[Rfam]
RNA: Purine riboswitch aptamer
RNA sequence: GGAAACGAACCGAAUAUCUUCUGUAUAACCUCAAGAAUACGGCAUGAGGGUCUCUACCAGGAACCAUAAAAUCCUGAUUACAGCAAACGAACCGCUCGUU
Numbered sequence: 001g002g003a004a005a006c007g008a009a010c011c012g013a014a015u016a017u018c019u020u021c022u023g024u025a026u027a028a029c030c031u032c033a034a035g036a037a038u039a040c041g042g043c044a045u046g047a048g049g050g051u052c053u054c055u056a057c058c059a060g061g062a063a064c065c066a067u068a069a070a071a072u073c074c075u076g077a078u079u080a081c082a083g084c085a086a087a088c089g090a091a092c093c094g095c096u097c098g099u100u
Stems, first nucleotide, its partner, number of pairs: 019085001021083005029049005035043001058076005